This 81-nucleotide sequence from Microcystis aeruginosa belongs to the Rfam family "Nitrogen stress-induced RNA 4". The source organism's lineage runs through Bacteria, Oscillatoriophycideae, Chroococcales, Microcystis and Microcystis aeruginosa. For this family Rfam cites "The sRNA NsiR4 is involved in nitrogen assimilation control in cyanobacteria by targeting glutamine synthetase inactivating factor IF7" (Klahn et al., Proc Natl Acad Sci U S A, 2015). Rfam's curators write: Former name SyR12, is a cyanobacterial non-coding RNA which plays role in the regulation of Glutamine synthetase (GS), a key enzyme in biological nitrogen assimilation. NsiR4 interacts with the 5'UTR of the mRNA of the GS inactivating factor IF7 (gifA mRNA) and reduces its expression. NsiR4 expression is under positive control of the nitrogen control transcription factor (NtcA). NsR4 is a first example of an sRNA controlling the assimilation of a micronutrient.
RNA sequence: AAGACAUAAAGUCAAUAUCACCCUCCGAUUGCAAUGAAAAAAUGUUUGGAUCGCUUAAUAUUUAAGCCUUUCAGACAUUUU
Numbered sequence: 001a002a003g004a005c006a007u008a009a010a011g012u013c014a015a016u017a018u019c020a021c022c023c024u025c026c027g028a029u030u031g032c033a034a035u036g037a038a039a040a041a042a043u044g045u046u047u048g049g050a051u052c053g054c055u056u057a058a059u060a061u062u063u064a065a066g067c068c069u070u071u072c073a074g075a076c077a078u079u080u081u
Base pairs, nucleotide, nucleotide: 003013004012005011039081040080041079042078043077044076045075046074047073048072049071050070
Dot-bracket structure: ..(((.....))).........................((((((((((((...................))))))))))))